[Rfam]
RNA: c-di-GMP-I riboswitch aptamer
Organism: Marisediminitalea aggregata
RNA sequence: GUUUGAAAAAGGCAAAGCGCGACGAAAGCGCGUGACGCAAAGCCUCCGGUCUUCAUCCUUUGAUAUGAUAGCGGGGCUACCGAA
Dot-bracket structure: ...........((...(((((.(....))))))...))..((((.((((((....((....))...)))..)))))))......